Shown here is a 301-nucleotide RNA from Abrus precatorius, a member of the family "Plant signal recognition particle RNA". Its family is annotated with SRP-dependent cotranslational protein targeting to membrane, signal sequence recognition and signal recognition particle, endoplasmic reticulum targeting in the Gene Ontology. On this family, see Wild et al., Curr Opin Struct Biol 2002: "Towards the structure of the mammalian signal recognition particle".
[Rfam]
RNA sequence: ACCGAGUUGGGUUACGCCAGCUUGUGACUCAAGUGAGGGCUUCAAAGUUAUGGGACAGCUCAAAGGCUUUGCUGGGUUGGAUUUAUGGCUGCAACAUGCUGGCUUGCCCGCUCCAAGUUGAGAGUUAGCUCGUGGAACUUAGGCGAAGGCAUAGGUUUCCUGAGUCUUAGACUAGAGGGUACAGCGUGAGGCUGGUUUCACAGAGCAGCGACCACCUCCGGCUCCCAACAGUGGAGGGAUUACAAGCUGCUGCACCAACAAUCCACCAUGGCGUCCUUUCGUUACUUGAAGUACAGCAUUG
Numbered sequence: 001a002c003c004g005a006g007u008u009g010g011g012u013u014a015c016g017c018c019a020g021c022u023u024g025u026g027a028c029u030c031a032a033g034u035g036a037g038g039g040c041u042u043c044a045a046a047g048u049u050a051u052g053g054g055a056c057a058g059c060u061c062a063a064a065g066g067c068u069u070u071g072c073u074g075g076g077u078u079g080g081a082u083u084u085a086u087g088g089c090u091g092c093a094a095c096a097u098g099c100u101g102g103c104u105u106g107c108c109c110g111c112u113c114c115a116a117g118u119u120g121a122g123a124g125u126u127a128g129c130u131c132g133u134g135g136a137a138c139u140u141a142g143g144c145g146a147a148g149g150c151a152u153a154g155g156u157u158u159c160c161u162g163a164g165u166c167u168u169a170g171a172c173u174a175g176a177g178g179g180u181a182c183a184g185c186g187u188g189a190g191g192c193u194g195g196u197u198u199c200a201c202a203g204a205g206c207a208g209c210g211a212c213c214a215c216c217u218c219c220g221g222c223u224c225c226c227a228a229c230a231g232u233g234g235a236g237g238g239a240u241u242a243c244a245a246g247c248u249g250c251u252g253c254a255c256c257a258a259c260a261a262u263c264c265a266c267c268a269u270g271g272c273g274u275c276c277u278u279u280c281g282u283u284a285c286u287u288g289a290a291g292u293a294c295a296g297c298a299u300u301g
Base pairs, nucleotide, nucleotide: 002039003038004023005022006021007020008019009018010017028037029036030035043301044300045299047297048296049295051293052292056288057287058285061281063279064278065277066276070273076272077271078270079264080263081262082261083260086257087256090254091253094251100249101248102247103246104245105244106243108238109237111236112235113234114233115232117229118228119227120226122224123223124222125221128165129164130163131162132161134159135158136157137156138155139154140153141152143150144149173220175218176217177216178215185210186209187208192203193202194201